The family of this 56-nucleotide RNA from Catellatospora sp. TT07R-123 is "msiK RNA". It scores 51 bits against the family's covariance model. By type it is a cis-regulatory element.
[Rfam]
RNA sequence: GGCACUCACUUUCACUCGGAUCGUCCGGCACGUUCCUGCCGGUGGAAGGAAGCACC
Numbered sequence: 001g002g003c004a005c006u007c008a009c010u011u012u013c014a015c016u017c018g019g020a021u022c023g024u025c026c027g028g029c030a031c032g033u034u035c036c037u038g039c040c041g042g043u044g045g046a047a048g049g050a051a052g053c054a055c056c
Base pairs, nucleotide, nucleotide: 009048010047011046012045013044014043025042026041027040028039029038030037
Background
The organism belongs to Catellatospora, within Bacteria.